[Rfam]
The family of this 66-nucleotide RNA from Ixodes scapularis is "Selenocysteine insertion sequence 1". Rfam classes the family as a cis-regulatory element.

RNA sequence: GACAGGUCCUAUGAUGUUGAGCCUUGAAAGCCCAUCAGGGCUAGGGUUUGACUGAAGUUGCCUGUC
Number, nucleotide and partner (000 for none) at each position: 001g066002a065003c064004a063005g062006g000007u000008c000009c000010u000011a000012u000013g000014a000015u000016g052017u051018u050019g049020a048021g047022c046023c045024u044025u043026g000027a000028a000029a000030g000031c040032c039033c038034a000035u000036c000037a000038g033039g032040g031041c000042u000043a025044g024045g023046g022047u021048u020049u019050g018051a017052c016053u000054g000055a000056a000057g000058u000059u000060g000061c000062c005063u004064g003065u002066c001

A search with the family's covariance model found it, with a score of 35 bits.